[Rfam]
The record is a 103-nucleotide sequence from Thiosulfativibrio zosterae, which matches "t44 RNA" in Rfam.
RNA sequence: UAAUUUUAACAAAAAAUCCACACGCUUGUCGGCACAUCAAACGGGGUGCUUUAAGAAGUUAGUCUUUUUAAAGUUCGUUUUUUGGGAUAAGCGGAGGCAUAAC
Numbered sequence: 001u002a003a004u005u006u007u008a009a010c011a012a013a014a015a016a017u018c019c020a021c022a023c024g025c026u027u028g029u030c031g032g033c034a035c036a037u038c039a040a041a042c043g044g045g046g047u048g049c050u051u052u053a054a055g056a057a058g059u060u061a062g063u064c065u066u067u068u069u070a071a072a073g074u075u076c077g078u079u080u081u082u083u084g085g086g087a088u089a090a091g092c093g094g095a096g097g098c099a100u101a102a103c
Base pairs, nucleotide, nucleotide: 023093024092025091026090027089028088029087030086035084036083039080040079041078042077043076048074049073050072051071052070053069054068055067
Record summary
Taxonomically the source falls in Thiosulfativibrio (Bacteria, Pseudomonadati, Pseudomonadota, Piscirickettsiaceae).